Background
A member of the RNA family "Listeria sRNA rli117" from Enterococcus rivorum, 265 nucleotides long. Taxonomically the source falls in Enterococcus (Bacteria, Bacillati, Bacillota, Bacilli). Rfam classes the family as a small RNA. The family has 3 seed sequences and 11 matches in Rfam 15.1. Rfam's curators write: Coevolved with internalin genes lmo0549, lmo0263, lmo02470. Internalins are important virulence factors. A search with the family's covariance model found it, with a score of 187 bits.
[Rfam]
RNA sequence: UGAAGUAGAAAAGGUAUGAAAGAACAAAUUCAAAUGUUAAAGCAAACGGUGGUCAUGUUAUGCUGAAAAGGCUCGAGGAACAAGUCAAAGUGCUAGCUAUUUAGUGAGUUCCUCGGGCACCAACAAACAGACAUGCCCAAUAAAGAAAGUCAAUAGCGACGUUAGGAGAGCCUAGCGGUCUAUUGACUUUCUUUAUAGUGUUUUAUGGAUUAGAAGAAUCAUUUUUCUCGUUUUCUUCUGUUUCUUUUAGAAAUUGUUUUAUGAC
Numbered sequence: 001u002g003a004a005g006u007a008g009a010a011a012a013g014g015u016a017u018g019a020a021a022g023a024a025c026a027a028a029u030u031c032a033a034a035u036g037u038u039a040a041a042g043c044a045a046a047c048g049g050u051g052g053u054c055a056u057g058u059u060a061u062g063c064u065g066a067a068a069a070g071g072c073u074c075g076a077g078g079a080a081c082a083a084g085u086c087a088a089a090g091u092g093c094u095a096g097c098u099a100u101u102u103a104g105u106g107a108g109u110u111c112c113u114c115g116g117g118c119a120c121c122a123a124c125a126a127a128c129a130g131a132c133a134u135g136c137c138c139a140a141u142a143a144a145g146a147a148a149g150u151c152a153a154u155a156g157c158g159a160c161g162u163u164a165g166g167a168g169a170g171c172c173u174a175g176c177g178g179u180c181u182a183u184u185g186a187c188u189u190u191c192u193u194u195a196u197a198g199u200g201u202u203u204u205a206u207g208g209a210u211u212a213g214a215a216g217a218a219u220c221a222u223u224u225u226u227c228u229c230g231u232u233u234u235c236u237u238c239u240g241u242u243u244c245u246u247u248u249a250g251a252a253a254u255u256g257u258u259u260u261a262u263g264a265c
Stems, first nucleotide, its partner, number of pairs: 002038002005035002008031003014025002017022001043263002050066001052064001054062003071118011085107003090102001122258004131248001134142001153204001155202004165192006172185001207245003211240006218234001221231002